[Rfam]
RNA sequence: UGAUGACAUUCUCCGGAAUCGCUGUACUGCUUUUGAUGAAAAGUCUUUUCCACCUGAUGAUCGUGGACUUUUUAUU
Numbered sequence: 001u002g003a004u005g006a007c008a009u010u011c012u013c014c015g016g017a018a019u020c021g022c023u024g025u026a027c028u029g030c031u032u033u034u035g036a037u038g039a040a041a042a043g044u045c046u047u048u049u050c051c052a053c054c055u056g057a058u059g060a061u062c063g064u065g066g067a068c069u070u071u072u073u074a075u076u
Base pairs, nucleotide, nucleotide: 002076003075004074005073006072
RNA: Small nucleolar RNA MBII-202